RNA sequence: UGAUGUGAGGGUGAUCUGGCUGUGACAUCUGUCCCCUCAUUGAUUGCCAGGGUUAAUUCAGCUGAUCUGGCUGGCUAGGCAGGUGUCCCCUUCCUCCCCCAAUGCUCCAGGUGCAUCCCUCCUGAAACUGCAUGCUUGGUCGCAGAGGACAACCUCCCCAAUAGAUGGUACUGUUCAUCAGUCAAGGGUAGCUGCACUCUCUUGCUAGACUCUCCAAACAAGCUCAAGGUCCAUUUGUAGGAGAGCAUAGGGUAGCCAAGAUUUUUCUUCUUUUUUUUUUUUUUUUAGUUUAAAAAAA
Numbered sequence: 001u002g003a004u005g006u007g008a009g010g011g012u013g014a015u016c017u018g019g020c021u022g023u024g025a026c027a028u029c030u031g032u033c034c035c036c037u038c039a040u041u042g043a044u045u046g047c048c049a050g051g052g053u054u055a056a057u058u059c060a061g062c063u064g065a066u067c068u069g070g071c072u073g074g075c076u077a078g079g080c081a082g083g084u085g086u087c088c089c090c091u092u093c094c095u096c097c098c099c100c101a102a103u104g105c106u107c108c109a110g111g112u113g114c115a116u117c118c119c120u121c122c123u124g125a126a127a128c129u130g131c132a133u134g135c136u137u138g139g140u141c142g143c144a145g146a147g148g149a150c151a152a153c154c155u156c157c158c159c160a161a162u163a164g165a166u167g168g169u170a171c172u173g174u175u176c177a178u179c180a181g182u183c184a185a186g187g188g189u190a191g192c193u194g195c196a197c198u199c200u201c202u203u204g205c206u207a208g209a210c211u212c213u214c215c216a217a218a219c220a221a222g223c224u225c226a227a228g229g230u231c232c233a234u235u236u237g238u239a240g241g242a243g244a245g246c247a248u249a250g251g252g253u254a255g256c257c258a259a260g261a262u263u264u265u266u267c268u269u270c271u272u273u274u275u276u277u278u279u280u281u282u283u284u285u286u287a288g289u290u291u292a293a294a295a296a297a298a
Stems, first nucleotide, its partner, number of pairs: 002107002006101002009098003013093002018090002024087010035074002037070003042067004046062002117168002120165002122139004128134001140161001142159001147157003192260002197255002200252005212243004218238005280298001282296005
Record summary: Rfam assigns this 298-nucleotide RNA from Sitta europaea to the family "7SK RNA". About the family: 7SK was discovered as an abundant small nuclear RNA in the mid-70s but a possible function has only recently been suggested. Two independent studies have found that 7SK RNA binds the CDK9/cyclin T complex (known as elongation factor P-TEFb). P-TEFb activates transcription by phosphorylating the C-terminal domain of RNA polymerase II. This process is negatively regulated by the 7SK RNP. The secondary structure of 7SK RNA shown here was proposed by Wasserman and Steitz on the basis of chemical modification and enzymatic cleavage experiments. This family contains a number of annotated pseudogenes and 7SK derived repeats. The threshold is artificially high to minimise the pseudogene count. For this family Rfam cites "Transcription: surprising role for an elusive small nuclear RNA" (Blencowe, Curr Biol, 2002). The family is grouped with related families in Rfam's "7SK clan". Lineage of the source: Eukaryota > Teleostomi > Amniota > Sauropsida > Sitta. It is annotated as a non-coding RNA gene.